Shown here is a 70-nucleotide sequence from Streptococcus zalophi, a member of the family "L17 ribosomal protein downstream element".

[Rfam]
RNA sequence: UGAGUGUUAUGAUGAUGGAAUACUAUUAUUCUUAGUCUAGCUCUGGUCUACCGCCGAUUAUUUUCGGCGG
Numbered sequence: 001u002g003a004g005u006g007u008u009a010u011g012a013u014g015a016u017g018g019a020a021u022a023c024u025a026u027u028a029u030u031c032u033u034a035g036u037c038u039a040g041c042u043c044u045g046g047u048c049u050a051c052c053g054c055c056g057a058u059u060a061u062u063u064u065c066g067g068c069g070g
Base pairs, nucleotide, nucleotide: 002043003042004041005040011037012036013035017032018031019030020029021028022027051070052069053068054067055066056065057064